[Rfam]
mir-29 microRNA precursor family: a 69-nucleotide RNA from Diaphorina citri.

Nucleotides: 069
Base pairs, nucleotide, nucleotide: 001069002068003067004066007063008062009061010060011059012058013057014056015055017053018052019051020050022049023048025046026045027044028043
Number, partner (000 for none) and nucleotide at each position: 001069a002068g003067g004066g005000u006000a007063c008062u009061g010060g011059u012058u013057u014056c015055a016000a017053g018052u019051g020050g021000a022049u023048g024000g025046u026045a027044g028043a029000g030000u031000c032000g033000u034000u035000u036000u037000c038000u039000a040000a041000c042000a043028u044027c045026u046025a047000g048023c049022a050020c051019c052018a053017u054000u055015u056014g057013a058012a059011a060010u061009c062008a063007g064000u065000g066004c067003u068002u069001u

Lineage of the source: Eukaryota > Eumetazoa > Mandibulata > Hemiptera > Diaphorina. The literature on the family includes a 2001 paper in Cell by Ambros, "microRNAs: tiny regulators with great potential". The family's consensus secondary structure was predicted with PFOLD. Gene Ontology terms of the family: gene silencing by miRNA and RISC complex.